[Rfam]
The record is a 133-nucleotide RNA from Jaculus jaculus, which matches "Small nucleolar RNA SNORA41" in Rfam. A reference for the family is Huttenhofer et al. (2001), "RNomics: an experimental approach that identifies 201 candidates for novel, small, non-messenger RNAs in mouse", EMBO J. The family's consensus secondary structure was predicted with PFOLD. It scores 135 bits against the family's covariance model. It is annotated as an H/ACA-box small nucleolar RNA. From the family's description: ACA41 is a member of the H/ACA class of snoRNA that guide the sites of modification of uridines to pseudouridines.

RNA sequence: UACCACAGCUACUGGUCUGCAGCUGUUCUUACGGUGGCAGCUGUGGCAUUCCUCUGUGGGAAAGAAAAUGUGACACAUUCAAUGCCUCUUUCUUAGGCCAAGCAGAAAGUAGGCAUAUGUGUGACAGACACAA
Numbered sequence: 001u002a003c004c005a006c007a008g009c010u011a012c013u014g015g016u017c018u019g020c021a022g023c024u025g026u027u028c029u030u031a032c033g034g035u036g037g038c039a040g041c042u043g044u045g046g047c048a049u050u051c052c053u054c055u056g057u058g059g060g061a062a063a064g065a066a067a068a069u070g071u072g073a074c075a076c077a078u079u080c081a082a083u084g085c086c087u088c089u090u091u092c093u094u095a096g097g098c099c100a101a102g103c104a105g106a107a108a109g110u111a112g113g114c115a116u117a118u119g120u121g122u123g124a125c126a127g128a129c130a131c132a133a
Base pairs, nucleotide, nucleotide: 003059004058005057006056017046018045019044020043021042022041023040024039025038073122074121075120076119077118085113086112087111088109089108090107091106092105093104